[Rfam]
RNA: F6 TB sRNA
RNA sequence: CACUGAACCCCUCGGUGCCGGCGGACCCCCGACCUGGCGGCGCCGAGGGGUGUUUCA
Number, nucleotide and partner (000 for none) at each position: 001c000002a000003c000004u000005g053006a000007a051008c050009c049010c048011c047012u046013c045014g044015g043016u042017g041018c040019c039020g038021g000022c036023g000024g000025a000026c000027c000028c000029c000030c000031g000032a000033c000034c000035u000036g022037g000038c020039g019040g018041c017042g016043c015044c014045g013046a012047g011048g010049g009050g008051u007052g000053u005054u000055u000056c000057a000